[Rfam]
RNA sequence: GGCCUCCCUCUGCCCGGCAAUCGAUGGUGGAGCCCCACGAUUGAUCGCCCCGCAGAGGGAGGCC
Numbered sequence: 001g002g003c004c005u006c007c008c009u010c011u012g013c014c015c016g017g018c019a020a021u022c023g024a025u026g027g028u029g030g031a032g033c034c035c036c037a038c039g040a041u042u043g044a045u046c047g048c049c050c051c052g053c054a055g056a057g058g059g060a061g062g063c064c
Base pairs, nucleotide, nucleotide: 001064002063003062004061005060006059007058008057009056010055011054012053013052016049017048018047020045021044022043023042024041025040027038028037029036030035
Shown here is a 64-nucleotide RNA from Myotis myotis, a member of the family "mir-9242 microRNA precursor family". Its family is annotated with miRNA-mediated post-transcriptional gene silencing and RISC complex in the Gene Ontology. Lineage of the source: Eukaryota > Eumetazoa > Gnathostomata > Yangochiroptera > Myotis.